Source information:
The family of this 288-nucleotide RNA sequence from Molossus molossus is "Mason-Pfizer monkey virus packaging signal". Rfam links the family to the GO term viral genome packaging. It scores 81 bits against the family's covariance model. The organism belongs to Molossus, within Eukaryota. The family has 9 seed sequences and 2,921 matches in Rfam 15.1. The family's RNA type in Rfam is cis-regulatory element.
RNA sequence: UGGCGCCCAACGUGGGACUCCAGCACGGGGGAUCCAGUGUAGGACACCAUUCAAGUGGCCGGCAGAAAGAAAAGCAAAGGAAAAGAAAGAAAAAGAAAAGAGGGAACAAAGUGGGAACAUGCUGCGUCUGCACCCCUCGGGUAAGUGAACGGCGAUUAUGGGCCAAGCAUUGAGCCUAGAUAAGAUGUUCAUUGAAGGACUAAAAAAAGGCUAUCAAGGCAUGAGGAGUAAAGGUGAAAAUUAAGCAUUUAUGUCAGUAUUUUGAUUAUAUUAAAGAAAUUUGUCCUU
Numbered sequence: 001u002g003g004c005g006c007c008c009a010a011c012g013u014g015g016g017a018c019u020c021c022a023g024c025a026c027g028g029g030g031g032a033u034c035c036a037g038u039g040u041a042g043g044a045c046a047c048c049a050u051u052c053a054a055g056u057g058g059c060c061g062g063c064a065g066a067a068a069g070a071a072a073a074g075c076a077a078a079g080g081a082a083a084a085g086a087a088a089g090a091a092a093a094a095g096a097a098a099a100g101a102g103g104g105a106a107c108a109a110a111g112u113g114g115g116a117a118c119a120u121g122c123u124g125c126g127u128c129u130g131c132a133c134c135c136c137u138c139g140g141g142u143a144a145g146u147g148a149a150c151g152g153c154g155a156u157u158a159u160g161g162g163c164c165a166a167g168c169a170u171u172g173a174g175c176c177u178a179g180a181u182a183a184g185a186u187g188u189u190c191a192u193u194g195a196a197g198g199a200c201u202a203a204a205a206a207a208a209g210g211c212u213a214u215c216a217a218g219g220c221a222u223g224a225g226g227a228g229u230a231a232a233g234g235u236g237a238a239a240a241u242u243a244a245g246c247a248u249u250u251a252u253g254u255c256a257g258u259a260u261u262u263u264g265a266u267u268a269u270a271u272u273a274a275a276g277a278a279a280u281u282u283g284u285c286c287u288u
Base pairs, nucleotide, nucleotide: 006031007030008029012026013025014024100138101137102135103134107130108129111125112124113123114122146165147164150162153160154159172214174211175210176209222264223263224262225261226260228258229257232250233249234248235247236246273288274287276285277284